The family of this 340-nucleotide RNA sequence from Botryosphaeria dothidea is "Group I catalytic intron".
Pairs were carried over by alignment from the consensus structure, which is taken from published work.
RNA sequence: CUUCCGCGGUGACACCUAUCGAAGCCUUGAAUUGCGCCCUCGCAAGAGGGAGACGCCCUGACGACUAUAAACAAGAGGGACACGCAAGUCGGCCUGCGGGCCGGCGACACUUUCGAAUUGCGGGGAUAUCCUUAGAGCUCUGCCUACCAACCCGGGGGGGAAACCCCCGGGGGCCGGUGUUAACAGCACCGGGUGCGGUAAGAAUGGUCAGAGAUUGGACAAUCCGCAGCCAAGCCCCUACGUCCCGCGGGAUACGGGGAAGGUUCACAGACUAAGUGGAAGUGGGUGCGGCCGUUCGACCGCGCUUAAGAUAUAGUCGGGCCCCUGGCGAAAGCCAGGG
Numbered sequence: 001c002u003u004c005c006g007c008g009g010u011g012a013c014a015c016c017u018a019u020c021g022a023a024g025c026c027u028u029g030a031a032u033u034g035c036g037c038c039c040u041c042g043c044a045a046g047a048g049g050g051a052g053a054c055g056c057c058c059u060g061a062c063g064a065c066u067a068u069a070a071a072c073a074a075g076a077g078g079g080a081c082a083c084g085c086a087a088g089u090c091g092g093c094c095u096g097c098g099g100g101c102c103g104g105c106g107a108c109a110c111u112u113u114c115g116a117a118u119u120g121c122g123g124g125g126a127u128a129u130c131c132u133u134a135g136a137g138c139u140c141u142g143c144c145u146a147c148c149a150a151c152c153c154g155g156g157g158g159g160g161a162a163a164c165c166c167c168c169g170g171g172g173g174c175c176g177g178u179g180u181u182a183a184c185a186g187c188a189c190c191g192g193g194u195g196c197g198g199u200a201a202g203a204a205u206g207g208u209c210a211g212a213g214a215u216u217g218g219a220c221a222a223u224c225c226g227c228a229g230c231c232a233a234g235c236c237c238c239u240a241c242g243u244c245c246c247g248c249g250g251g252a253u254a255c256g257g258g259g260a261a262g263g264u265u266c267a268c269a270g271a272c273u274a275a276g277u278g279g280a281a282g283u284g285g286g287u288g289c290g291g292c293c294g295u296u297c298g299a300c301c302g303c304g305c306u307u308a309a310g311a312u313a314u315a316g317u318c319g320g321g322c323c324c325c326u327g328g329c330g331a332a333a334g335c336c337a338g339g340g
Stems, first nucleotide, its partner, number of pairs: 006043004011038001013036001048057002108284005114278002119228006129219003229264002235258003243252003268319001270318005286305006293298001325338005
Rfam describes the family as follows. Group I catalytic introns are large self-splicing ribozymes. They catalyse their own excision from mRNA, tRNA and rRNA precursors in a wide range of organisms. The core secondary structure consists of 9 paired regions (P1-P9).